[Rfam]
Nucleotides: 104
Stems, first nucleotide, its partner, number of pairs: 010091004015086002018083002021080009032067001033065003037061008
Number, partner (000 for none) and nucleotide at each position: 001000c002000c003000u004000g005000g006000c007000c008000c009000g010091u011090g012089c013088a014000c015086c016085g017000u018083g019082g020000c021080c022079u023078c024077u025076g026075c027074c028073c029072g030000a031000a032067c033065c034064g035063a036000c037061c038060c039059u040058g041057g042056c043055g044054u045000a046000c047000u048000u049000c050000c051000c052000c053000a054044a055043c056042g057041c058040c059039a060038g061037g062000u063035u064034c065033g066000c067032g068000a069000u070000c071000c072029c073028g074027g075026g076025c077024a078023g079022g080021g081000a082019c083018c084000u085016c086015g087000a088013u089012g090011c091010a092000g093000g094000g095000g096000c097000a098000c099000c100000g101000u102000c103000u104000g